[Rfam]
RNA sequence: AAUAAGCCAGCGUUAGCGAUUGAAACGGCAUCCUUUUUAGUUGUCAGUUCGAGUGAAUUUGUGAAGAAUGAACAAAUUUGUGUCGAGAACAAAAACUAAAAAGAUAUAGUGUAAAGCGCGACCUGAA
Number, nucleotide and partner (000 for none) at each position: 001a000002a000003u000004a000005a000006g000007c000008c000009a000010g000011c000012g000013u000014u000015a000016g119017c118018g117019a000020u115021u114022g000023a000024a000025a110026c109027g000028g000029c000030a105031u104032c103033c000034u000035u000036u100037u099038u098039a097040g096041u095042u094043g000044u000045c000046a000047g000048u000049u000050c000051g000052a000053g000054u000055g000056a000057a000058u000059u000060u000061g000062u000063g000064a000065a000066g000067a000068a000069u000070g000071a000072a000073c000074a000075a000076a000077u000078u000079u000080g000081u000082g000083u000084c000085g000086a000087g000088a000089a000090c000091a000092a000093a000094a042095a041096c040097u039098a038099a037100a036101a000102a000103g032104a031105u030106a000107u000108a000109g026110u025111g000112u000113a000114a021115a020116g000117c018118g017119c016120g000121a000122c000123c000124u000125g000126a000127a000
This 127-nucleotide sequence from Lutibacter sp. Hel_I_33_5 belongs to the Rfam family "Flavo-1 RNA". The organism belongs to Lutibacter, within Bacteria.